Rfam assigns this 306-nucleotide sequence from Sinocyclocheilus rhinocerous to the family "Nuclear RNase P". The source organism's lineage runs through Eukaryota, Otophysi, Cypriniphysae, Cypriniformes and Sinocyclocheilus. Rfam links the family to the GO terms tRNA processing, ribonuclease P activity and ribonuclease P complex. On this family, see Marquez et al., RNA 2005: "Structural implications of novel diversity in eucaryal RNase P RNA". By type it is a ribozyme. Clan: RNaseP clan.
RNA sequence: GCGGAAGGAAGCUCACUGUAGAGGUCACAAACGGAGUGCUCGUCACUCGACCAAUCACCUCGGGGAAGGUCUGAGACAAGAGCCAAUCGCUGUCCUCACAGGACAUCAUCUGAACAGAUGAGCGAGCGCACAGAAAGCAUGGGUCAGAGCGCGGUGUUCUCGCACGAGACGUUGAUAGCCGCGCAGUUUCGGCGGAUCAACUGAUGCGAUCCCCGCCGACUUGGAAACACUCGCGGCUGGCGAAUGAGUUCAAUGUGUGAGCUAGUACAAGAUACUAGAACCCAAUUCAGACUACUCUCCCUCCGC
Numbered sequence: 001g002c003g004g005a006a007g008g009a010a011g012c013u014c015a016c017u018g019u020a021g022a023g024g025u026c027a028c029a030a031a032c033g034g035a036g037u038g039c040u041c042g043u044c045a046c047u048c049g050a051c052c053a054a055u056c057a058c059c060u061c062g063g064g065g066a067a068g069g070u071c072u073g074a075g076a077c078a079a080g081a082g083c084c085a086a087u088c089g090c091u092g093u094c095c096u097c098a099c100a101g102g103a104c105a106u107c108a109u110c111u112g113a114a115c116a117g118a119u120g121a122g123c124g125a126g127c128g129c130a131c132a133g134a135a136a137g138c139a140u141g142g143g144u145c146a147g148a149g150c151g152c153g154g155u156g157u158u159c160u161c162g163c164a165c166g167a168g169a170c171g172u173u174g175a176u177a178g179c180c181g182c183g184c185a186g187u188u189u190c191g192g193c194g195g196a197u198c199a200a201c202u203g204a205u206g207c208g209a210u211c212c213c214c215g216c217c218g219a220c221u222u223g224g225a226a227a228c229a230c231u232c233g234c235g236g237c238u239g240g241c242g243a244a245u246g247a248g249u250u251c252a253a254u255g256u257g258u259g260a261g262c263u264a265g266u267a268c269a270a271g272a273u274a275c276u277a278g279a280a281c282c283c284a285a286u287u288c289a290g291a292c293u294a295c296u297c298u299c300c301c302u303c304c305g306c
Stems, first nucleotide, its partner, number of pairs: 001306004007300003012261005021061004034048005071290005081238004091105005106121006122234005128228001143220003262278006
Dot-bracket structure: ((((..(((..(((((....((((.........(((((.....))))).........)))).........[[[[[.....((((......(((((.....)))))((((((....))))))(((((.(..............(((........................................................................))).......).)))))))))..................)))))((((((.....)))))).......]]]]].......)))..))))